[Rfam]
RNA sequence: GGUGGGGGGAGGGGUCCCCUCAGCUUGGAUUGUGAGAGGGCACAGGCCAGGCCAAGGGACCCCACUGGUGCAUG
Number, nucleotide and partner (000 for none) at each position: 001g000002g000003u072004g071005g000006g069007g000008g000009g065010a000011g063012g062013g061014g060015u059016c000017c058018c057019c056020u055021c000022a000023g052024c051025u050026u000027g048028g047029a000030u045031u044032g043033u042034g041035a000036g000037a000038g000039g000040g000041c034042a033043c032044a031045g030046g000047c028048c027049a000050g025051g024052c023053c000054a000055a020056g019057g018058g017059a015060c014061c013062c012063c011064a000065c009066u000067g000068g000069u006070g000071c004072a003073u000074g000
Description:
A member of the RNA family "mir-9193 microRNA precursor family" from Myotis lucifugus, 74 nucleotides long. The family has 2 seed sequences and 6,008 matches in Rfam 15.1. The match comes from Rfam's covariance-model search (55 bits). Its family is annotated with miRNA-mediated post-transcriptional gene silencing and RISC complex in the Gene Ontology.